[Rfam]
RNA sequence: CUUCCGCCCUCCCCGCACAGGAGGGCGGACGAGGGAGCCGCGCGCUCUGCCCUGACCGCGCAGGCCCCUCCCGCCGGCCGCCGGGACCGCACACCCGCCGGCCGAAGUACUCCGGGUCGCGGUGCCGGACGGGUUGAGGGUCCCGUCCCGGCAC
Numbered sequence: 001c002u003u004c005c006g007c008c009c010u011c012c013c014c015g016c017a018c019a020g021g022a023g024g025g026c027g028g029a030c031g032a033g034g035g036a037g038c039c040g041c042g043c044g045c046u047c048u049g050c051c052c053u054g055a056c057c058g059c060g061c062a063g064g065c066c067c068c069u070c071c072c073g074c075c076g077g078c079c080g081c082c083g084g085g086a087c088c089g090c091a092c093a094c095c096c097g098c099c100g101g102c103c104g105a106a107g108u109a110c111u112c113c114g115g116g117u118c119g120c121g122g123u124g125c126c127g128g129a130c131g132g133g134u135u136g137a138g139g140g141u142c143c144c145g146u147c148c149c150g151g152c153a154c
Stems, first nucleotide, its partner, number of pairs: 003029004008024005031070005038063001040061001042059002045054001075104006083096003108124004113119002127148007
Dot-bracket structure: ..((((.(((((.......))))).)))).(((((..(.(.((.(........)...)).).)..)))))....((((((..(((........)))..))))))...((((.((...)).))))..(((((((........)))))))......